[Rfam]
RNA sequence: UGAAAGUUCCGGACGGCAGCCGGGCUGAGGGCAUGCCUGCAUGCGCCGAAGCACGGAUAUCGGACGGACAAGGAAGUAUGAACAAGCAGGCCGACAGGCCGGAUUGUGAAUACUUCCGGCAGCUGUGAGAGCGCCUAAGGCGCGGAACAGCUGACUUUCA
Numbered sequence: 001u002g003a004a005a006g007u008u009c010c011g012g013a014c015g016g017c018a019g020c021c022g023g024g025c026u027g028a029g030g031g032c033a034u035g036c037c038u039g040c041a042u043g044c045g046c047c048g049a050a051g052c053a054c055g056g057a058u059a060u061c062g063g064a065c066g067g068a069c070a071a072g073g074a075a076g077u078a079u080g081a082a083c084a085a086g087c088a089g090g091c092c093g094a095c096a097g098g099c100c101g102g103a104u105u106g107u108g109a110a111u112a113c114u115u116c117c118g119g120c121a122g123c124u125g126u127g128a129g130a131g132c133g134c135c136u137a138a139g140g141c142g143c144g145g146a147a148c149a150g151c152u153g154a155c156u157u158u159c160a
Base pairs, nucleotide, nucleotide: 001160002159003158004157005156006155007154008068009067010066011065015061016060018058020056021055022054024052025051026050029047030046031044032043033042034041035040072117073116074115075114076113077112078111079110082107083106084105085104089100090099091098092097120153121152122151123150124149125148126147131143132142133141134140

Source information
Rfam assigns this 160-nucleotide RNA sequence from Lachnospiraceae bacterium OF09-33XD to the family "Clostridiales-1 RNA". A search with the family's covariance model found it, with a score of 108 bits.